[Rfam]
RNA sequence: UGCCUUUGUGUUGCCCAUUCUUUUUUGGAAACUUGCGAAUGUGGUGUCAAAAAAAGCAGAAUCUAAACACUUUGCAGCCUUUUCCUGUCCUUGAAUUUUUGGUGUAGGAGCUGUAUAAGUAACAGUU
Numbered sequence: 001u002g003c004c005u006u007u008g009u010g011u012u013g014c015c016c017a018u019u020c021u022u023u024u025u026u027g028g029a030a031a032c033u034u035g036c037g038a039a040u041g042u043g044g045u046g047u048c049a050a051a052a053a054a055a056g057c058a059g060a061a062u063c064u065a066a067a068c069a070c071u072u073u074g075c076a077g078c079c080u081u082u083u084c085c086u087g088u089c090c091u092u093g094a095a096u097u098u099u100u101g102g103u104g105u106a107g108g109a110g111c112u113g114u115a116u117a118a119g120u121a122a123c124a125g126u127u
Base pairs, nucleotide, nucleotide: 002057003056005054006053007052009049010048012046013045014044015043016041017040018039019038020037022035069120070119071118072117073115074114075113076112077111078110083109084108085107086106087105088104089102090101093097
Dot-bracket structure: .((.(((.((.(((((((((.(............).))))).)))).))..))).))...........((((((((((....((((((((..(...)...)).)))))))))))).)))).......